Rfam assigns this 108-nucleotide RNA from Cephalotus follicularis to the family "Small nucleolar RNA Z279/snoR105/snoR108". A search with the family's covariance model found it, with a score of 93 bits. Its family is annotated with nucleolus and RNA processing in the Gene Ontology. A reference for the family is Marker et al. (2002), "Experimental RNomics: identification of 140 candidates for small non-messenger RNAs in the plant Arabidopsis thaliana", Curr Biol. Rfam's curators write: This family includes the plant snoRNAs known as Z279, snoR105 and snoR108. Rfam classes the family as a C/D-box small nucleolar RNA.
RNA sequence: GGGAGAUGAUGAGUGGUCAUCACUCGCAAUUGUUUUUGCGUGAUGGGUGUCUGCCCCACAGCCUGGUUACGACAAUCAGGGCACCCCUUUUUGUUGCCAUCUGAUCCC
Number, nucleotide and partner (000 for none) at each position: 001g108002g107003g106004a105005g000006a000007u000008g000009a000010u000011g000012a000013g000014u099015g098016g097017u096018c000019a000020u000021c000022a000023c042024u000025c040026g039027c038028a000029a000030u000031u000032g000033u000034u000035u000036u000037u000038g027039c026040g025041u000042g023043a000044u000045g086046g085047g084048u083049g082050u080051c079052u000053g000054c000055c000056c000057c000058a000059c000060a000061g000062c000063c000064u078065g077066g076067u075068u000069a000070c000071g000072a000073c000074a000075a067076u066077c065078a064079g051080g050081g000082c049083a048084c047085c046086c045087c000088u000089u000090u000091u000092u000093g000094u000095u000096g017097c016098c015099a014100u000101c000102u000103g000104a000105u004106c003107c002108c001